The record is an 80-nucleotide RNA from Jatropha curcas, which matches "MIR473 microRNA precursor family" in Rfam. NCBI's taxonomy places the organism under Eukaryota, fabids, Malpighiales, Euphorbiaceae, Jatropha. It scores 65 bits against the family's covariance model. Gene Ontology terms of the family: RISC complex and miRNA-mediated post-transcriptional gene silencing.
RNA sequence: AUUGUUCACUCUCCCUCAAGGCUUCAAGCCAUCUGUGGUAAAAUCCCAGGCUCGAGGUCUAGAGGGAGAGUGGAUAAUAG
Dot-bracket structure: .....((((((((((.(.(((((((............................))))))).).)))))))))).......
The family has 6 seed sequences and 189 matches in Rfam 15.1.